Annotation: Rfam assigns this 260-nucleotide sequence from Castanea mollissima to the family "RNase MRP". The match comes from Rfam's covariance-model search (58 bits). Pairs were carried over by alignment from the consensus structure, which is taken from published work. Rfam describes the family as follows. RNase MRP is an enzymatically active ribonucleoprotein with two distinct roles in eukaryotes. In mitochondria it plays a direct role in the initiation of mitochondrial DNA replication.
[Rfam]
RNA sequence: GGAACAUGAGACGUUGUGACAGGGCCAUCAGCUUUGUAUUUUGUAUUACCAGGCCCAGGAAAGUCCCUGGGCUUCUUCUUACAAAGAUGCAGACUCGGAAACGAGCUAUACUAUGAGACUGGGAAUUCAAUCACCUAGUGCUAGGGGCUAAGACACGUGUGGAGCCCAUGAAUUCCUAUCAUAGUAAUUUGGCUGAUAUACACAGUUAUUCACAUGGUCCCACUGUGGACUAAUUGAACGGGGCUUACACUCUCGUGGUC
Number, nucleotide and partner (000 for none) at each position: 001g000002g260003a259004a000005c257006a256007u255008g254009a253010g252011a251012c000013g000014u000015u214016g213017u212018g211019a210020c000021a000022g056023g055024g054025c053026c000027a000028u000029c000030a000031g000032c000033u000034u048035u000036g046037u045038a044039u043040u000041u000042u000043g039044u038045a037046u036047u000048a034049c000050c000051a000052g000053g025054c024055c023056c022057a000058g000059g000060a000061a246062a245063g244064u000065c243066c242067c241068u240069g000070g000071g000072c000073u000074u000075c000076u000077u000078c000079u000080u091081a000082c089083a088084a000085a000086g000087a000088u083089g082090c000091a080092g107093a000094c105095u104096c103097g102098g000099a000100a000101a000102c097103g096104a095105g094106c000107u092108a000109u186110a185111c184112u000113a000114u000115g000116a000117g180118a179119c000120u000121g176122g175123g000124a000125a000126u000127u172128c000129a000130a000131u000132c000133a000134c000135c000136u000137a000138g167139u000140g165141c164142u000143a000144g000145g000146g000147g000148c000149u000150a000151a000152g000153a160154c159155a000156c000157g000158u000159g154160u153161g000162g000163a000164g141165c140166c000167c138168a000169u000170g000171a000172a127173u000174u000175c122176c121177u000178a000179u118180c117181a000182u000183a000184g111185u110186a109187a000188u000189u000190u000191g000192g000193c000194u000195g000196a000197u000198a000199u000200a000201c000202a000203c000204a000205g000206u000207u000208a000209u000210u019211c018212a017213c016214a015215u000216g000217g230218u229219c228220c227221c000222a000223c000224u000225g000226u000227g220228g219229a218230c217231u000232a000233a000234u000235u000236g000237a000238a000239c000240g068241g067242g066243g065244c063245u062246u061247a000248c000249a000250c000251u011252c010253u009254c008255g007256u006257g005258g000259u003260c002